[Rfam]
RNA: Small nucleolar RNA Z13/snr52
Organism: Saitozyma podzolica
RNA sequence: CCACCUUUCAUGAUGAAGCAUUUUUCGGAUGUAAAUGCCUUCGGGCAGUUGUCCGAGAGCGCAAAACCCAUGUGGACAACUCCGUUGCCUUCCUUCUGACCAAGCCU
Numbered sequence: 001c002c003a004c005c006u007u008u009c010a011u012g013a014u015g016a017a018g019c020a021u022u023u024u025u026c027g028g029a030u031g032u033a034a035a036u037g038c039c040u041u042c043g044g045g046c047a048g049u050u051g052u053c054c055g056a057g058a059g060c061g062c063a064a065a066a067c068c069c070a071u072g073u074g075g076a077c078a079a080c081u082c083c084g085u086u087g088c089c090u091u092c093c094u095u096c097u098g099a100c101c102a103a104g105c106c107u
Stems, first nucleotide, its partner, number of pairs: 005104001026084004